Notes:
Shown here is a 254-nucleotide RNA sequence from Desulfotomaculum copahuensis, a member of the family "glmS glucosamine-6-phosphate activated ribozyme aptamer". By type it is a riboswitch. About the family: This entry contains a glucosamine-6-phosphate activated ribozyme that is found in the mRNA for GlmS. GlmS is an enzyme that uses fructose-6-phosphate and glutamine to generate glucosamine-6-phosphate. The family's consensus secondary structure is taken from published work. The literature on the family includes a 2004 paper in Nature by Winkler et al., "Control of gene expression by a natural metabolite-responsive ribozyme". NCBI's taxonomy places the organism under Bacteria, Clostridia, Eubacteriales, Desulfotomaculaceae, Desulfotomaculum.

RNA sequence: ACUGAAUACAUAGCGCCAGAACCCGGAGGGGGCAAUUCAGCCGGUAUUUUUGAACCGGACGGAGUCCCGGUCCGUAUACUUAUUGAAAAUCCCGUCCUGUGCUUUCCAGACGGGAGGCUGAUUUCUGUUUUCCGGGUUGACGAGGAGGGAGUGCAUCGAAAUUUUCGGCGGAUGCUCCCCGGUCGGCCACGACCGUCAACGGCAUGACAAAACCGGCGGGUAACCGCCGGGACAAAGGUGCCUGGUGGCGACGG
Numbered sequence: 001a002c003u004g005a006a007u008a009c010a011u012a013g014c015g016c017c018a019g020a021a022c023c024c025g026g027a028g029g030g031g032g033c034a035a036u037u038c039a040g041c042c043g044g045u046a047u048u049u050u051u052g053a054a055c056c057g058g059a060c061g062g063a064g065u066c067c068c069g070g071u072c073c074g075u076a077u078a079c080u081u082a083u084u085g086a087a088a089a090u091c092c093c094g095u096c097c098u099g100u101g102c103u104u105u106c107c108a109g110a111c112g113g114g115a116g117g118c119u120g121a122u123u124u125c126u127g128u129u130u131u132c133c134g135g136g137u138u139g140a141c142g143a144g145g146a147g148g149g150a151g152u153g154c155a156u157c158g159a160a161a162u163u164u165u166c167g168g169c170g171g172a173u174g175c176u177c178c179c180c181g182g183u184c185g186g187c188c189a190c191g192a193c194c195g196u197c198a199a200c201g202g203c204a205u206g207a208c209a210a211a212a213c214c215g216g217c218g219g220g221u222a223a224c225c226g227c228c229g230g231g232a233c234a235a236a237g238g239u240g241c242c243u244g245g246u247g248g249c250g251a252c253g254g
Base pairs, nucleotide, nucleotide: 020138021137022136023135024134025133026132027131029129147179148178149177150176151175156168157167158166159165180195181194182193183192184191185190201242202241203240204239205238213230214229215228216227217226218225219224